Overview
Small nucleolar RNA Z13/snr52: a 98-nucleotide RNA sequence from Ascosphaera apis. The sequence is in the family's curated seed alignment. Rfam classes the family as a C/D-box small nucleolar RNA.
[Rfam]
RNA sequence: GAUUGUAUGAUGAAUCAUUUACGGAUGUAAAUCACAGACCUGAUCCGAAUGCGCAAAACCGUGUGGAUCUUUUCCGUUGCCUUCCUUCUGAUCACAAU
Numbered sequence: 001g002a003u004u005g006u007a008u009g010a011u012g013a014a015u016c017a018u019u020u021a022c023g024g025a026u027g028u029a030a031a032u033c034a035c036a037g038a039c040c041u042g043a044u045c046c047g048a049a050u051g052c053g054c055a056a057a058a059c060c061g062u063g064u065g066g067a068u069c070u071u072u073u074c075c076g077u078u079g080c081c082u083u084c085c086u087u088c089u090g091a092u093c094a095c096a097a098u
Stems, first nucleotide, its partner, number of pairs: 003097003022076004